[Rfam]
Notes: A member of the RNA family "Ribosomal protein L20 leader" from Bacillus sp. J14TS2, 139 nucleotides long. Pairs were carried over by alignment from the consensus structure, which was predicted with CMfinder. The family's RNA type in Rfam is cis-regulatory leader. About the family: This family is a putative r-protein leader autoregulatory structure found in B. subtilis and other low-GC Gram-positive bacteria. It is located in the 5' untranslated regions of mRNAs encoding initiation factor 3 followed by ribosomal proteins L35 and L20 (infC-rpmI-rplT). Rfam links the family to the GO term regulation of gene expression. The source organism's lineage runs through Bacteria, Bacillati, Caryophanales, Bacillaceae and Bacillus. It scores 65 bits against the family's covariance model.
RNA sequence: UGAUGGAAGAAGGAGCUGCCCGCUUCUCGCCUGAUCGACGCUAUAUGUUGUUGGCAGGUUUUAGAUCUGAAAUUUAUCAUUCAUUAAAUAUCUUUUUGAAUGUAAAGCGGGUGCCUUGUGCCCGCUUUUUUUAUUGUUC
Numbered sequence: 001u002g003a004u005g006g007a008a009g010a011a012g013g014a015g016c017u018g019c020c021c022g023c024u025u026c027u028c029g030c031c032u033g034a035u036c037g038a039c040g041c042u043a044u045a046u047g048u049u050g051u052u053g054g055c056a057g058g059u060u061u062u063a064g065a066u067c068u069g070a071a072a073u074u075u076a077u078c079a080u081u082c083a084u085u086a087a088a089u090a091u092c093u094u095u096u097u098g099a100a101u102g103u104a105a106a107g108c109g110g111g112u113g114c115c116u117u118g119u120g121c122c123c124g125c126u127u128u129u130u131u132u133a134u135u136g137u138u139c
Base pairs, nucleotide, nucleotide: 011027012026013025014024015023016022029059030058031057037052038051039050040048041047106126107125108124109123110122111121112120113119114118